[Rfam]
RNA sequence: GACACUUUUAUGAAGGCGUUGUGCUAAACCCUGACCGGGGCACAGCACCUGAUGCGUAGUGUGUC
Numbered sequence: 001g002a003c004a005c006u007u008u009u010a011u012g013a014a015g016g017c018g019u020u021g022u023g024c025u026a027a028a029c030c031c032u033g034a035c036c037g038g039g040g041c042a043c044a045g046c047a048c049c050u051g052a053u054g055c056g057u058a059g060u061g062u063g064u065c
Stems, first nucleotide, its partner, number of pairs: 001065005015049002018046007029039003